The family of this 62-nucleotide RNA from Pan troglodytes is "U7 small nuclear RNA". For this family Rfam cites "3' end processing of mouse histone pre-mRNA: evidence for additional base-pairing between U7 snRNA and pre-mRNA" (Spycher et al., Nucleic Acids Res, 1994). Animal histone pre-mRNAs are spliced by a different mechanism than nuclear pre-mRNAs and self-splicing introns.

RNA sequence: UAGUGUUACAGUUCUUUCAGAAUUUGUCUAGCAACCUUUCUGGUUUUUGCUAGAAAGCUCUC
Dot-bracket structure: .................................(.(((((((((....))))))))).)...